[Rfam]
This 137-nucleotide RNA sequence from Onychostoma macrolepis belongs to the Rfam family "Small nucleolar RNA SNORA13". The family's RNA type in Rfam is H/ACA-box small nucleolar RNA. Rfam describes the family as follows. ACA13 is a member of the H/ACA class of snoRNA that guide the sites of modification of uridines to pseudouridines. Its family is annotated with nucleolus and RNA processing in the Gene Ontology. Pairs were carried over by alignment from the consensus structure, which was predicted with CMfinder. Lineage of the source: Eukaryota > Deuterostomia > Chordata > Actinopteri > Onychostoma.

RNA sequence: UGCCUUUGUGUUGCCCAUUCGUUUUCCAUUAGAUGAAUGUGGUGUCAACGAAGGCGCACAGUAAAUCUUGAAAUAGCCUGAUUUAUGAGAGAACACUCUUAAUUGUUCCUCUUGCUUGUGCUAUGACAAGAACAGCG
Numbered sequence: 001u002g003c004c005u006u007u008g009u010g011u012u013g014c015c016c017a018u019u020c021g022u023u024u025u026c027c028a029u030u031a032g033a034u035g036a037a038u039g040u041g042g043u044g045u046c047a048a049c050g051a052a053g054g055c056g057c058a059c060a061g062u063a064a065a066u067c068u069u070g071a072a073a074u075a076g077c078c079u080g081a082u083u084u085a086u087g088a089g090a091g092a093a094c095a096c097u098c099u100u101a102a103u104u105g106u107u108c109c110u111c112u113u114g115c116u117u118g119u120g121c122u123a124u125g126a127c128a129a130g131a132a133c134a135g136c137g
Stems, first nucleotide, its partner, number of pairs: 002055006009047002012044004016039008067130004073124005085119005090113001091111002095106002